Description: The record is a 62-nucleotide RNA from Suricata suricatta, which matches "Gag/pol translational readthrough site" in Rfam. Rfam 15.1 lists 3,368 matches to the family in 94 species. Pairs were carried over by alignment from the consensus structure, which is taken from published work. Its family is annotated with viral translational readthrough in the Gene Ontology. It scores 73 bits against the family's covariance model. On this family, see ten Dam et al., Virus Genes 1990: "RNA pseudoknots: translational frameshifting and readthrough on viral RNAs".

[Rfam]
Nucleotides: 062
Stems, first nucleotide, its partner, number of pairs: 008041001010039001012036004016031004022060006
Number, partner (000 for none) and nucleotide at each position: 001000u002000a003000g004000g005000g006000g007000g008041g009000a010039c011000a012036g013035g014034g015033u016031u017030c018029g019028g020000a021000c022060c023059c024058c025057c026056u027055c028019c029018c030017g031016g032000a033015g034014c035013c036012c037000a038000g039010g040000g041008u042000a043000a044000c045000c046000u047000u048000a049000c050000a051000a052000g053000u054000g055027g056026a057025g058024g059023g060022g061000a062000c